[Rfam]
RNA sequence: AUGUUUAAAUUAGCGCCAUGUACCUCUUUGGGCAAUAUAUAGAGGUUAACGAGGUAGGGAGUCAGCGAAAUAUUCGGCGGAUGCUCUCUCAUAGGCUUGGAUGUGUGAAUUGCUGAAAAACCUCCGGGUAACCGGAACACAACAGCGGCAAUACCAAGAUAA
Numbered sequence: 001a002u003g004u005u006u007a008a009a010u011u012a013g014c015g016c017c018a019u020g021u022a023c024c025u026c027u028u029u030g031g032g033c034a035a036u037a038u039a040u041a042g043a044g045g046u047u048a049a050c051g052a053g054g055u056a057g058g059g060a061g062u063c064a065g066c067g068a069a070a071u072a073u074u075c076g077g078c079g080g081a082u083g084c085u086c087u088c089u090c091a092u093a094g095g096c097u098u099g100g101a102u103g104u105g106u107g108a109a110u111u112g113c114u115g116a117a118a119a120a121c122c123u124c125c126g127g128g129u130a131a132c133c134g135g136a137a138c139a140c141a142a143c144a145g146c147g148g149c150a151a152u153a154c155c156a157a158g159a160u161a162a
Base pairs, nucleotide, nucleotide: 022046023045024044025043026042027041029039056089057088058087059086060085066076067075068074090105091104092103093102109152110151111150112149113148114147115146123136124135125134126133127132
RNA: glmS glucosamine-6-phosphate activated ribozyme aptamer
Organism: Anaerocolumna xylanovorans